The record is a 357-nucleotide sequence from Neogemmobacter tilapiae, which matches "Alphaproteobacteria transfer-messenger RNA" in Rfam. The literature on the family includes a 1996 paper in RNA by Williams and Bartel, "Phylogenetic analysis of tmRNA secondary structure". Taxonomically the source falls in Neogemmobacter (Bacteria, Pseudomonadati, Pseudomonadota, Rhodobacterales). The match comes from Rfam's covariance-model search (283 bits). Rfam classes the family as a non-coding RNA gene. Rfam describes the family as follows. Bacterial tmRNA, also known as 10Sa RNA or SsrA, is named for its dual tRNA and mRNA-like properties. Its role is to liberate the mRNA from a stalled ribosome. To accomplish this part of the tmRNA is used as a reading frame that ends in a translation stop signal. The broken mRNA is replaced in the ribosome by the tmRNA and translation of the tmRNA leads to addition of a proteolysis tag to the incomplete protein enabling recognition by a protease. Clan: tRNA clan.

RNA sequence: CCGCUUGCGCGCCAAGACCAGUCGCCCUAUAUCUACUCCUGUCCGGGGCAACCCGGACUAUGGCGAUAAACGCACCCGUAAUAAACGGAUCGGACCCGGGGGCGGUACCCGGCGGCUCCACCAACACUCCCUCAUUGGGGGCGGAGGGGGCCGAAAUAGGAUCGACGAACGUCUAAAGGGGCCAGCUUUCGCUCGGUGAGCCACCACCGUUAUCGGUGCAAACGUACAGUUGCCAAUGACAACCGUGCUCCGGCAAUGGCUCUGGCUGCGUAAGCAGCUUAAGUCGCCGAAACUAAGUCCUUGCGCUUAGCCGCGUAAGGCGGGGCCCGCAGGAGCCUGGCAACAGAAUCCUGCACU
Number, nucleotide and partner (000 for none) at each position: 001c000002c000003g000004c000005u000006u000007g000008c000009g000010c000011g000012c000013c000014a000015a000016g000017a000018c000019c000020a000021g000022u000023c000024g000025c000026c000027c000028u000029a000030u000031a000032u000033c000034u000035a000036c000037u000038c000039c000040u000041g058042u057043c056044c055045g054046g053047g052048g000049c000050a000051a000052c047053c046054c045055g044056g043057a042058c041059u000060a000061u000062g193063g192064c191065g190066a189067u000068a000069a000070a000071c000072g186073c185074a000075c181076c180077c179078g000079u000080a000081a000082u000083a000084a000085a000086c171087g170088g000089a000090u168091c167092g166093g000094a000095c000096c112097c111098g110099g109100g108101g000102g000103c000104g000105g000106u000107a000108c100109c099110c098111g097112g096113c153114g152115g151116c150117u149118c148119c147120a000121c000122c000123a000124a000125c000126a000127c000128u000129c000130c000131c000132u000133c000134a000135u000136u000137g000138g000139g000140g000141g000142c000143g000144g000145a000146g000147g119148g118149g117150g116151c115152c114153g113154a000155a000156a000157u000158a000159g000160g000161a000162u000163c000164g000165a000166c092167g091168a090169a000170c087171g086172u000173c000174u000175a000176a000177a000178g000179g077180g076181g075182c000183c000184a000185g073186c072187u000188u000189u066190c065191g064192c063193u062194c209195g208196g207197u206198g000199a000200g219201c218202c000203a217204c216205c215206a197207c196208c195209g194210u000211u000212a000213u000214c000215g205216g204217u203218g201219c200220a000221a000222a000223c000224g000225u000226a000227c000228a000229g000230u000231u000232g000233c000234c000235a000236a000237u000238g000239a000240c000241a000242a000243c000244c000245g000246u000247g000248c000249u000250c000251c000252g000253g000254c000255a000256a000257u000258g000259g000260c000261u000262c000263u000264g000265g000266c000267u000268g000269c000270g000271u000272a000273a000274g000275c000276a000277g000278c000279u000280u000281a000282a000283g000284u000285c000286g000287c000288c000289g000290a000291a000292a000293c000294u000295a000296a000297g000298u000299c000300c000301u000302u000303g000304c000305g000306c000307u000308u000309a000310g000311c000312c000313g000314c000315g000316u000317a000318a000319g000320g000321c000322g000323g338324g337325g336326c335327c000328c000329g354330c353331a352332g351333g350334a349335g326336c325337c324338u323339g000340g000341c000342a000343a000344c000345a000346g000347a000348a000349u334350c333351c332352u331353g330354c329355a000356c000357u000